The family of this 74-nucleotide RNA from Electrophorus electricus is "Small nucleolar RNA SNORD59".
Rfam 15.1 lists 1,355 matches to the family in 620 species.
RNA sequence: CCUUUAAAUGAUGAUUUUAAAAGUUUGACUUUCGUUCUUCUGACUCCAAUGAAGCCAAACUUUCUUCUGAGAGG
Dot-bracket structure: (((.(.................................................................))))
Numbered sequence: 001c002c003u004u005u006a007a008a009u010g011a012u013g014a015u016u017u018u019a020a021a022a023g024u025u026u027g028a029c030u031u032u033c034g035u036u037c038u039u040c041u042g043a044c045u046c047c048a049a050u051g052a053a054g055c056c057a058a059a060c061u062u063u064c065u066u067c068u069g070a071g072a073g074g
Stems, first nucleotide, its partner, number of pairs: 001074003005071001
Description:
The family's consensus secondary structure was predicted with ILM. The family's RNA type in Rfam is C/D-box small nucleolar RNA. The match comes from Rfam's covariance-model search (52 bits). Its family is annotated with nucleolus and RNA processing in the Gene Ontology. For this family Rfam cites "Purified box C/D snoRNPs are able to reproduce site-specific 2'-O-methylation of target RNA in vitro" (Galardi et al., Mol Cell Biol, 2002).